Rfam assigns this 586-nucleotide part of an RNA from marine gamma proteobacterium HTCC2148 to the family "Bacterial small subunit ribosomal RNA". The family is grouped with related families in Rfam's "SSU clan". The match comes from Rfam's covariance-model search (1582 bits). The source organism's lineage runs through Bacteria, Pseudomonadati, Pseudomonadota, Gammaproteobacteria and Halieaceae. The family's consensus secondary structure is taken from published work.
RNA sequence: UGACGGGGGCCCGCACAAGCGGUGGAGCAUGUGGUUUAAUUCGAUGCAACGCGAAGAACCUUACCAGGUCUUGACAUACAGCGAACUUUCCAGAGAUGGAUUGGUGCCUUCGGGAGCGCUGAUACAGGUGCUGCAUGGCUGUCGUCAGCUCGUGUCGUGAGAUGUUGGGUUAAGUCCCGUAACGAGCGCAACCCUUGUCCUUAGUUGCCAGCACGUAAUGGUGGGAACUCUAGGGAGACUGCCGGUGACAAACCGGAGGAAGGUGGGGACGACGUCAAGUCAUCAUGGCCCUUACGACCUGGGCUACACACGUGCUACAAUGGAACGCACAGAGGGCAGCAAACCCGCGAGGGGGAGCGAAUCCCACAAAACGUUUCGUAGUCCGGAUCGGAGUCUGCAACUCGACUCCGUGAAGUCGGAAUCGCUAGUAAUCGUGAAUCAGAAUGUCACGGUGAAUACGUUCCCGGGCCUUGUACACACCGCCCGUCACACCAUGGGAGUGGGUUGCUCCAGAAGUGGCUAGCUUAACCUUCGGGAGAGCGGUCACCACGGAGUGAUUCAUGACUGGGGUGAAGUCGUAACAAGG
Dot-bracket structure: (((((.(((((((.((..((((((.((((((((((....((((........))))........(((((((......(((((((..(..((((....))))..).(.((....)).)))))).))..((.((((..((((((.((...(((((((((....)))..((((......))))..)))))).....((((.(((((((...((..(((......)))))....)))))))..((.(((((.....))))).)).....))))....)).).)))...))))))))....)))))))...)).)))))))).)...((((((......(((..((...(((....)))...))....)))......))))))......(....(((((((........)))))))....).....))))).....(((((((.........)))))))......))...)))))))))).))..(.(..((...((((.(((..((((((((((((....((((((.((((..((....)).))))))))))...))))))))))))..))).))))....))...)..).